[Rfam]
The family of this 59-nucleotide RNA sequence from Gadus morhua is "Selenocysteine insertion sequence 1". The family has 61 seed sequences and 3,793 matches in Rfam 15.1. The base pairs follow the family's consensus structure, which is taken from published work. A search with the family's covariance model found it, with a score of 40 bits.
RNA sequence: AGUAGUUUAUGAAGGCCUCGUCUGAAAGCUUUGGCCGGAUGAGGCCUGAUGUCUCUGCU
Numbered sequence: 001a002g003u004a005g006u007u008u009a010u011g012a013a014g015g016c017c018u019c020g021u022c023u024g025a026a027a028g029c030u031u032u033g034g035c036c037g038g039a040u041g042a043g044g045c046c047u048g049a050u051g052u053c054u055c056u057g058c059u
Base pairs, nucleotide, nucleotide: 001059002058003057004056005055014046015045016044017043018042019041020040021039022038023037028035029034
The incorporation of selenocysteine into a protein sequence is directed by an in-frame UGA codon (usually a stop codon) within the coding region of the mRNA. Selenoprotein mRNAs contain a conserved secondary structure in the 3' UTR that is required for the distinction of UGA stop from UGA selenocysteine.